[Rfam]
RNA sequence: GUGCCCUGCCUGUGAUGAAGCCUGUGUUGGUAGGGACAUCUGAGAGUGCUGAAGAAUGCCAACGGCUCUGAAGGUGGCGG
Numbered sequence: 001g002u003g004c005c006c007u008g009c010c011u012g013u014g015a016u017g018a019a020g021c022c023u024g025u026g027u028u029g030g031u032a033g034g035g036a037c038a039u040c041u042g043a044g045a046g047u048g049c050u051g052a053a054g055a056a057u058g059c060c061a062a063c064g065g066c067u068c069u070g071a072a073g074g075u076g077g078c079g080g
Stems, first nucleotide, its partner, number of pairs: 002079004
The record is an 80-nucleotide sequence from Sciurus carolinensis, which matches "Small nucleolar RNA SNORD74" in Rfam. It is annotated as a C/D-box small nucleolar RNA. The base pairs follow the family's consensus structure, which was predicted with PFOLD. For this family Rfam cites "Purified box C/D snoRNPs are able to reproduce site-specific 2'-O-methylation of target RNA in vitro" (Galardi et al., Mol Cell Biol, 2002).